[Rfam]
A member of the RNA family "Metazoan signal recognition particle RNA" from Rhinolophus ferrumequinum, 296 nucleotides long.
About the family: The signal recognition particle (SRP) is a universally conserved ribonucleoprotein.
The literature on the family includes a 2002 paper in Curr Opin Struct Biol by Wild et al., "Towards the structure of the mammalian signal recognition particle".
By type it is a non-coding RNA gene.
The organism belongs to Rhinolophus, within Eukaryota.
Its family is annotated with SRP-dependent cotranslational protein targeting to membrane, signal sequence recognition and signal recognition particle, endoplasmic reticulum targeting in the Gene Ontology.
RNA sequence: GCUGGGCGCUGUGGCGCGCGCCUGUAGUCCCAGCUAACAGGAAGCUGACGCAGGAGGAUCGCUUGAGCUCAGGAGUUCUGGGCUGUAGUGCGCUAUGCCGAUCGGGUGGCCGCACUAAGUUCAGCAUCAAUAUGGUGACCUCCCGGGAGCAGGGGACCACCAGAUUGCCUAAGGAGAGGUGAACCGGCCCAGGUCAGAAACGGAGCAGGUCAAAGCUCCAGUGCUGAUCAGCAUUGGGAUCGUGCCAGAACAGCCACUGCACUCGAGCCUGGGCAACAUAGAGAGAACCGUCUCUU
Numbered sequence: 001g002c003u004g005g006g007c008g009c010u011g012u013g014g015c016g017c018g019c020g021c022c023u024g025u026a027g028u029c030c031c032a033g034c035u036a037a038c039a040g041g042a043a044g045c046u047g048a049c050g051c052a053g054g055a056g057g058a059u060c061g062c063u064u065g066a067g068c069u070c071a072g073g074a075g076u077u078c079u080g081g082g083c084u085g086u087a088g089u090g091c092g093c094u095a096u097g098c099c100g101a102u103c104g105g106g107u108g109g110c111c112g113c114a115c116u117a118a119g120u121u122c123a124g125c126a127u128c129a130a131u132a133u134g135g136u137g138a139c140c141u142c143c144c145g146g147g148a149g150c151a152g153g154g155g156a157c158c159a160c161c162a163g164a165u166u167g168c169c170u171a172a173g174g175a176g177a178g179g180u181g182a183a184c185c186g187g188c189c190c191a192g193g194u195c196a197g198a199a200a201c202g203g204a205g206c207a208g209g210u211c212a213a214a215g216c217u218c219c220a221g222u223g224c225u226g227a228u229c230a231g232c233a234u235u236g237g238g239a240u241c242g243u244g245c246c247a248g249a250a251c252a253g254c255c256a257c258u259g260c261a262c263u264c265g266a267g268c269c270u271g272g273g274c275a276a277c278a279u280a281g282a283g284a285g286a287a288c289c290g291u292c293u294c295u296u
Stems, first nucleotide, its partner, number of pairs: 001045003004023006028042003047294002050291002053289002059284002062281002067274007078267002081264002084261007092254003096250001098248001105246004110238002113236002116233001119229001121227007128167004133162005140155004145150001168174002176219001178217003186211004194203002